[Rfam]
RNA sequence: GGUGGAGAUAGAGGUAGCGGUGCAUCAGAGUACUUUUUGGAGCUGGCAAGCGAAGAAGAAAAGGAAAGGUAACCAUCGCCGAAAGAAGAAAACGGCAGUUUUCUUACUUGGGGUUCUAGGAAAUACUUAGUUCACUCCUUCAUUUCUUGGAGAGGCGUUAUCUGAUAU
Number, nucleotide and partner (000 for none) at each position: 001g000002g000003u000004g000005g000006a163007g162008a161009u160010a159011g158012a000013g000014g000015u000016a000017g079018c078019g077020g076021u075022g074023c000024a000025u071026c000027a000028g000029a000030g000031u000032a000033c063034u062035u061036u060037u059038u058039g000040g000041a000042g000043c000044u000045g000046g000047c000048a000049a000050g000051c000052g000053a000054a000055g000056a000057a000058g038059a037060a036061a035062a034063g033064g000065a000066a000067a000068g000069g000070u000071a025072a000073c000074c022075a021076u020077c019078g018079c017080c000081g000082a000083a109084a108085g107086a105087a104088g103089a102090a101091a100092a099093c098094g000095g000096c000097a000098g093099u092100u091101u090102u089103c088104u087105u086106a000107c085108u084109u083110g136111g135112g000113g133114u000115u000116c130117u129118a128119g127120g126121a000122a000123a000124u000125a000126c120127u119128u118129a117130g116131u000132u000133c113134a000135c111136u110137c000138c152139u151140u150141c149142a148143u000144u000145u000146c000147u000148u142149g141150g140151a139152g138153a000154g000155g000156c000157g000158u011159u010160a009161u008162c007163u006164g000165a000166u000167a000168u000